The family of this 46-nucleotide sequence from Jeotgalicoccus saudimassiliensis is "PreQ1 (pre queuosine) riboswitch aptamer". This family is a bacterial riboswitch that binds to the metabolite preQ1, an intermediate in the biosynthesis of the modified nucleoside queuosine from GTP. One example of this riboswitch is located in the leader of the Bacillus subtilis ykvJKLM (queCDEF) operon which encodes four genes necessary for queuosine production. PreQ1 binding to the riboswitch aptamer is thought to induce premature transcription termination within the leader to down-regulate expression of these genes. Rfam 15.1 lists 873 matches to the family in 692 species. For this family Rfam cites "Analysis of a preQ1-I riboswitch in effector-free and bound states reveals a metabolite-programmed nucleobase-stacking spine that controls gene regulation" (Schroeder et al., Nucleic Acids Res, 2020).
RNA sequence: UACGAAGAGGUUCUUAGCCAUACCCUCUUAAAAAAACUAAGACACA
Numbered sequence: 001u002a003c004g005a006a007g008a009g010g011u012u013c014u015u016a017g018c019c020a021u022a023c024c025c026u027c028u029u030a031a032a033a034a035a036a037c038u039a040a041g042a043c044a045c046a
Stems, first nucleotide, its partner, number of pairs: 006028005015039002